[Rfam]
RNA sequence: CAUUCCGAGGAGCGUUGCGACGCGUCAACAAGUGCUGAAUCAGCCGCUUGAUGCGCCAGGCUCGGAGUUCCAAACCGCGCUCACGUUAC
Numbered sequence: 001c002a003u004u005c006c007g008a009g010g011a012g013c014g015u016u017g018c019g020a021c022g023c024g025u026c027a028a029c030a031a032g033u034g035c036u037g038a039a040u041c042a043g044c045c046g047c048u049u050g051a052u053g054c055g056c057c058a059g060g061c062u063c064g065g066a067g068u069u070c071c072a073a074a075c076c077g078c079g080c081u082c083a084c085g086u087u088a089c
Base pairs, nucleotide, nucleotide: 002068003067004066005065006064007063008062021055022054023053024052025051026050027049028048

Rfam assigns this 89-nucleotide sequence from Duganella fentianensis to the family "SAH (S-adenosyl-L-homocysteine) riboswitch aptamer". The source organism's lineage runs through Bacteria, Pseudomonadati, Pseudomonadota, Betaproteobacteria and Duganella. Its family is annotated with regulation of gene expression and S-adenosylhomocysteine metabolic process in the Gene Ontology.